c-di-GMP-I riboswitch aptamer: an 87-nucleotide RNA sequence from Pontibacillus litoralis. The source organism's lineage runs through Bacteria, Bacillota, Caryophanales, Pontibacillus and Pontibacillus litoralis. Clan: c-di-GMP_I riboswitch clan.

RNA sequence: CUCAGAAAAAGGCAAACUAAUUGAAAGAUUAGGACGCAAAGAUGCAGAUCUAACGCAUGAAAAUGCUAGGAUGGCUGGUCUACCUGA
Numbered sequence: 001c002u003c004a005g006a007a008a009a010a011g012g013c014a015a016a017c018u019a020a021u022u023g024a025a026a027g028a029u030u031a032g033g034a035c036g037c038a039a040a041g042a043u044g045c046a047g048a049u050c051u052a053a054c055g056c057a058u059g060a061a062a063a064u065g066c067u068a069g070g071a072u073g074g075c076u077g078g079u080c081u082a083c084c085u086g087a
Stems, first nucleotide, its partner, number of pairs: 012037002017032006040081004045077003048072003055066004
A search with the family's covariance model found it, with a score of 79 bits.